A member of the RNA family "Interferon gamma 5' UTR regulatory element" from Molossus molossus, 169 nucleotides long. A search with the family's covariance model found it, with a score of 121 bits. The family's RNA type in Rfam is cis-regulatory element. This family represents a pseudoknot containing stem-loop structure found in the 5' UTR of interferon (IFN) gamma mRNA. This structure is thought to be involved in translational regulation and the pseudoknot has been found to activate PKR which is known to be a translational inhibitor. Mutations in the pseudoknot structure have been found to reduce PKR activation and increase the translation of IFN-gamma.
RNA sequence: AUUUUCUCUGAACAUCUACAGGUUGACUAUUAGAAGAGAAAGAUCGGCUGAGUCCUUGGUACCUGAUCGGCUUAAUACAGGAUCUACUGACUUCAACAACUUCGGCCUAACUCUCUUUAAAACAAUGAAUUAUACAAGAUAUAUCUUAGCUUUUCAGCUUUGCGUGAUC
Numbered sequence: 001a002u003u004u005u006c007u008c009u010g011a012a013c014a015u016c017u018a019c020a021g022g023u024u025g026a027c028u029a030u031u032a033g034a035a036g037a038g039a040a041a042g043a044u045c046g047g048c049u050g051a052g053u054c055c056u057u058g059g060u061a062c063c064u065g066a067u068c069g070g071c072u073u074a075a076u077a078c079a080g081g082a083u084c085u086a087c088u089g090a091c092u093u094c095a096a097c098a099a100c101u102u103c104g105g106c107c108u109a110a111c112u113c114u115c116u117u118u119a120a121a122a123c124a125a126u127g128a129a130u131u132a133u134a135c136a137a138g139a140u141a142u143a144u145c146u147u148a149g150c151u152u153u154u155c156a157g158c159u160u161u162g163c164g165u166g167a168u169c
Base pairs, nucleotide, nucleotide: 008070009069010068011067013065014064015120018117020114021113022112025107027105028104032101033100036097041093042092044090045089046088047087051085052084056081057080059078122168125165126164127163131143132142133141134140148159149158150157151156